[Rfam]
RNA sequence: AUAACUAGGCAUCCGGGACAAAUCCCAGAGGGAAAGCCAGCAAUGGCUACCGGACUUCCUGACC
Numbered sequence: 001a002u003a004a005c006u007a008g009g010c011a012u013c014c015g016g017g018a019c020a021a022a023u024c025c026c027a028g029a030g031g032g033a034a035a036g037c038c039a040g041c042a043a044u045g046g047c048u049a050c051c052g053g054a055c056u057u058c059c060u061g062a063c064c
Stems, first nucleotide, its partner, number of pairs: 007060003012054005023033004035048005
RNA: DUF3800-II RNA